[Rfam]
RNA sequence: GUGCAGGUUAAGUUACAGGGCAGCUGAUGCGGUGCUGUUUUGUCGUUCCCCCUGCACAAAGAAACCUGUUUCCUACUAUCCCUGUCUGUCUGCAUCUCCCCAGCAGGCAGGGACGCUUGGUCUCAAACAC
Numbered sequence: 001g002u003g004c005a006g007g008u009u010a011a012g013u014u015a016c017a018g019g020g021c022a023g024c025u026g027a028u029g030c031g032g033u034g035c036u037g038u039u040u041u042g043u044c045g046u047u048c049c050c051c052c053u054g055c056a057c058a059a060a061g062a063a064a065c066c067u068g069u070u071u072c073c074u075a076c077u078a079u080c081c082c083u084g085u086c087u088g089u090c091u092g093c094a095u096c097u098c099c100c101c102a103g104c105a106g107g108c109a110g111g112g113a114c115g116c117u118u119g120g121u122c123u124c125a126a127a128c129a130c
Stems, first nucleotide, its partner, number of pairs: 003055005015043010081111004086106004